This 122-nucleotide RNA from Pedobacter chitinilyticus belongs to the Rfam family "Flavo-1 RNA".
Rfam classes the family as a small RNA.
[Rfam]
RNA sequence: UAAUAAACCCGAUUGAAGCGGAAAUACUUUUUUAUUGCGCACGGGCUUAAGAAACCUCUUAGGUUUUAAAACCUACGAAGUUUGGCGAAAAAAAAAGAUUGCAGCAAAAAGCGGGGCUACCA
Numbered sequence: 001u002a003a004u005a006a007a008c009c010c011g012a013u014u015g016a017a018g019c020g021g022a023a024a025u026a027c028u029u030u031u032u033u034a035u036u037g038c039g040c041a042c043g044g045g046c047u048u049a050a051g052a053a054a055c056c057u058c059u060u061a062g063g064u065u066u067u068a069a070a071a072c073c074u075a076c077g078a079a080g081u082u083u084g085g086c087g088a089a090a091a092a093a094a095a096a097g098a099u100u101g102c103a104g105c106a107a108a109a110a111g112c113g114g115g116g117c118u119a120c121c122a
Base pairs, nucleotide, nucleotide: 009114010113011112013110014109018105019104023100024099025098029095030094031093032092033091035089036088